[Rfam]
RNA sequence: AGCAGCACCGUGCGAGAGACCACCUCGAAAGGUGGCGCCGAAGGCGCAAACCCGCCCGGAAUCGCUCAGGCAAAUGGAGCACGGUCGCUGU
Numbered sequence: 001a002g003c004a005g006c007a008c009c010g011u012g013c014g015a016g017a018g019a020c021c022a023c024c025u026c027g028a029a030a031g032g033u034g035g036c037g038c039c040g041a042a043g044g045c046g047c048a049a050a051c052c053c054g055c056c057c058g059g060a061a062u063c064g065c066u067c068a069g070g071c072a073a074a075u076g077g078a079g080c081a082c083g084g085u086c087g088c089u090g091u
Stems, first nucleotide, its partner, number of pairs: 007085007020035004037071003040067002044065003051058001
The record is a 91-nucleotide RNA from Solimonas marina, which matches "Glycine riboswitch aptamer" in Rfam. Rfam describes the family as follows. This family represents the bacterial glycine riboswitch.